[Rfam]
RNA sequence: UUUGCAAGUGAUGAUAAAACAGACAGGGACAUCAGAACCUCCAUUAUAUGGGGAAAAUGUGAUGACUUAGUCUAAUGGGAAUCUCUCUGAUGCAAA
Numbered sequence: 001u002u003u004g005c006a007a008g009u010g011a012u013g014a015u016a017a018a019a020c021a022g023a024c025a026g027g028g029a030c031a032u033c034a035g036a037a038c039c040u041c042c043a044u045u046a047u048a049u050g051g052g053g054a055a056a057a058u059g060u061g062a063u064g065a066c067u068u069a070g071u072c073u074a075a076u077g078g079g080a081a082u083c084u085c086u087c088u089g090a091u092g093c094a095a096a
Stems, first nucleotide, its partner, number of pairs: 002095005
The record is a 96-nucleotide RNA from Nicotiana sylvestris, which matches "Small nucleolar RNA R44/J54/Z268 family" in Rfam.
By type it is a C/D-box small nucleolar RNA.
The base pairs follow the family's consensus structure, which was predicted with PFOLD.